[Rfam]
RNA sequence: AAAAGUUAAAUUUGUAUGCAGCUGGAAUAGUGCUCCUAGCAGCAAACAUAGGCAAACGUUUCAACUCCAUACAAAUUUGACUUA
Numbered sequence: 001a002a003a004a005g006u007u008a009a010a011u012u013u014g015u016a017u018g019c020a021g022c023u024g025g026a027a028u029a030g031u032g033c034u035c036c037u038a039g040c041a042g043c044a045a046a047c048a049u050a051g052g053c054a055a056a057c058g059u060u061u062c063a064a065c066u067c068c069a070u071a072c073a074a075a076u077u078u079g080a081c082u083u084a
Base pairs, nucleotide, nucleotide: 008078009077010076011075012074013073014072015071016070018068020066021065023063024062025061026060027059028058034052035051039047
A member of the RNA family "mir-2807 microRNA precursor family" from Bombyx mori, 84 nucleotides long. Gene Ontology terms of the family: miRNA-mediated post-transcriptional gene silencing and RISC complex. For this family Rfam cites "Novel microRNAs in silkworm (Bombyx mori)" (Cai et al., Funct Integr Genomics, 2010).